[Rfam]
RNA sequence: CACCGGUUUGCGGGAGAGAGCAGCGACGCUGCCGCCGAAGGGGAAAUCCGCCCGAAAUCUCUCAGGCAAAAGAACCGCCGCCGGGUA
Numbered sequence: 001c002a003c004c005g006g007u008u009u010g011c012g013g014g015a016g017a018g019a020g021c022a023g024c025g026a027c028g029c030u031g032c033c034g035c036c037g038a039a040g041g042g043g044a045a046a047u048c049c050g051c052c053c054g055a056a057a058u059c060u061c062u063c064a065g066g067c068a069a070a071a072g073a074a075c076c077g078c079c080g081c082c083g084g085g086u087a
Stems, first nucleotide, its partner, number of pairs: 006082001008080001010078004020032004034067003037063002041061003047055002
Annotation:
This 87-nucleotide RNA from Kumtagia ephedrae belongs to the Rfam family "Glycine riboswitch aptamer". Pairs were carried over by alignment from the consensus structure. The source organism's lineage runs through Bacteria, Alphaproteobacteria, Hyphomicrobiales, Phyllobacteriaceae and Kumtagia. This family represents the bacterial glycine riboswitch. Glycine riboswitches usually consist of two metabolite-binding aptamers domains with similar structures in tandem. The aptamers cooperatively bind glycine to regulate the expression of downstream genes. In Bacillus subtilis, this riboswitch is found upstream of the gcvT operon which controls glycine degradation.